Shown here is a 161-nucleotide RNA from Paenibacillus catalpae, a member of the family "c-di-AMP riboswitch aptamer (ydaO/yuaA leader)". The match comes from Rfam's covariance-model search (94 bits). The pairing is the family consensus, mapped onto this sequence. Lineage of the source: Bacteria > Bacilli > Caryophanales > Paenibacillaceae > Paenibacillus. About the family: This family represents a conserved RNA structure found upstream of the ydaO and yuaA genes in Bacillus subtilis and related genes in other bacteria.
RNA sequence: GAAUAGCAACAGCCGAAUUUCGCUAUCGAAAACGGGGGAACCAAACCGCUGUACAGUGCAAUCCGUCAGCAUGGGGUGAAUUUCGAGCAUCCGCUCGAAUAGGGCUGCCUUUCCAGGCCCGAAUCCGUCAGCUAACCUCGUAGGCUGUGUGGAACAGGACU
Numbered sequence: 001g002a003a004u005a006g007c008a009a010c011a012g013c014c015g016a017a018u019u020u021c022g023c024u025a026u027c028g029a030a031a032a033c034g035g036g037g038g039a040a041c042c043a044a045a046c047c048g049c050u051g052u053a054c055a056g057u058g059c060a061a062u063c064c065g066u067c068a069g070c071a072u073g074g075g076g077u078g079a080a081u082u083u084c085g086a087g088c089a090u091c092c093g094c095u096c097g098a099a100u101a102g103g104g105c106u107g108c109c110u111u112u113c114c115a116g117g118c119c120c121g122a123a124u125c126c127g128u129c130a131g132c133u134a135a136c137c138u139c140g141u142a143g144g145c146u147g148u149g150u151g152g153a154a155c156a157g158g159a160c161u
Stems, first nucleotide, its partner, number of pairs: 011146004018031003032141006042073002074126003082099004102120004